[Rfam]
RNA sequence: CUCUUAUCCAGAGAGGCUGAGGGACUGGCCCGAUGACGCCCGGCAACCGACUGUAUCUGCAGUAUAGGUGCCAAUUCCUGCAGGAUGUUUUGAUCCUGAUAGAUAAGAG
Numbered sequence: 001c002u003c004u005u006a007u008c009c010a011g012a013g014a015g016g017c018u019g020a021g022g023g024a025c026u027g028g029c030c031c032g033a034u035g036a037c038g039c040c041c042g043g044c045a046a047c048c049g050a051c052u053g054u055a056u057c058u059g060c061a062g063u064a065u066a067g068g069u070g071c072c073a074a075u076u077c078c079u080g081c082a083g084g085a086u087g088u089u090u091u092g093a094u095c096c097u098g099a100u101a102g103a104u105a106a107g108a109g
Stems, first nucleotide, its partner, number of pairs: 001109008013041001015040003021031003025080001027078002042072004047068002050063003076101001081098006
Dot-bracket structure: ((((((((....(.(((...(((.[.[[)))......))))((((.((.(((........)))...))))))...(]].]((((((......))))))..)))))))))
RNA: SAM riboswitch aptamer (S box leader)
Organism: Desmospora activa